[Rfam]
RNA sequence: AUGUGGCGCUGAAGAGGUUCCCCCCCACCGCUUCAGUGUCUCCGGUGUGUUUCCUUUAGAAGAACCCGCGGCCCGGUACCCUCUUCGAGGGUUCCGGGCCGCCUUCUUUU
Number, nucleotide and partner (000 for none) at each position: 001a000002u000003g000004u000005g041006g040007c000008g037009c036010u035011g034012a033013a032014g031015a000016g029017g028018u027019u000020c000021c000022c000023c000024c000025c000026c000027a018028c017029c016030g000031c014032u013033u012034c011035a010036g009037u008038g000039u000040c006041u005042c000043c000044g054045g053046u000047g051048u000049g000050u000051u047052u000053c045054c044055u000056u000057u000058a107059g106060a105061a104062g103063a000064a000065c000066c000067c000068g102069c101070g100071g099072c098073c097074c096075g095076g094077u000078a092079c091080c090081c089082u000083c000084u000085u000086c000087g000088a000089g081090g080091g079092u078093u000094c076095c075096g074097g073098g072099c071100c070101g069102c068103c062104u061105u060106c059107u058108u000109u000110u000

The family of this 110-nucleotide RNA sequence from Cystobacter ferrugineus is "Pxr regulatory sRNA". Downregulates genes responsible for the formation of fruiting bodies in Myxococcus xanthus, inhibiting the transition from growth to development in the presence of abundant nutrients. The literature on the family includes a 2010 paper in Science by Yu et al., "Adaptive evolution of an sRNA that controls Myxococcus development".